The record is a 78-nucleotide sequence from Alligator mississippiensis, which matches "Mammalian CPEB3 ribozyme" in Rfam.
RNA sequence: AAAGUACAAUAAAGAGGCCAUAGCAGAAGCACUCAUGGUGCAGCUCUGUCACAUUCCAACAAAUAUGUGAAUUCUGCU
Numbered sequence: 001a002a003a004g005u006a007c008a009a010u011a012a013a014g015a016g017g018c019c020a021u022a023g024c025a026g027a028a029g030c031a032c033u034c035a036u037g038g039u040g041c042a043g044c045u046c047u048g049u050c051a052c053a054u055u056c057c058a059a060c061a062a063a064u065a066u067g068u069g070a071a072u073u074c075u076g077c078u
Base pairs, nucleotide, nucleotide: 014046015045017044018043022078023077024076025075026074027073028072029041030040031039050067051066053064054063055062
Dot-bracket structure: .............[[.[[...((((((((((.......))).]]]]...((.(((......))).))....)))))))
The organism belongs to Alligator, within Eukaryota.